[Rfam]
RNA: Acido-Lenti-1 RNA
Organism: Edaphobacter acidisoli
RNA sequence: CCUGGGGCUUCGCCCCAGGCUGGUAUGAAUCGGGCCUUUGGCCCU
Numbered sequence: 001c002c003u004g005g006g007g008c009u010u011c012g013c014c015c016c017a018g019g020c021u022g023g024u025a026u027g028a029a030u031c032g033g034g035c036c037u038u039u040g041g042c043c044c045u
Stems, first nucleotide, its partner, number of pairs: 001019008032044005